[Rfam]
RNA sequence: GAGAAAUGAUGAGUUCCACUUCAUUGGUCCGUGUUUCUGAAUCUAAUGAUAUUGGUGGAAGUUCUGAUCUC
Dot-bracket structure: ((((...............................................................))))